[Rfam]
RNA sequence: UAUUCAAUCGGUGAUGAAGUUCGCCUUUAACUGCCAAUGCGCUGAUGACUUCUACUAGUAA
Numbered sequence: 001u002a003u004u005c006a007a008u009c010g011g012u013g014a015u016g017a018a019g020u021u022c023g024c025c026u027u028u029a030a031c032u033g034c035c036a037a038u039g040c041g042c043u044g045a046u047g048a049c050u051u052c053u054a055c056u057a058g059u060a061a
Stems, first nucleotide, its partner, number of pairs: 010025004016052006033042002
A member of the RNA family "Fluoride riboswitch aptamer (crcB RNA motif)" from Isobaculum melis, 61 nucleotides long. The family's consensus secondary structure is taken from published work.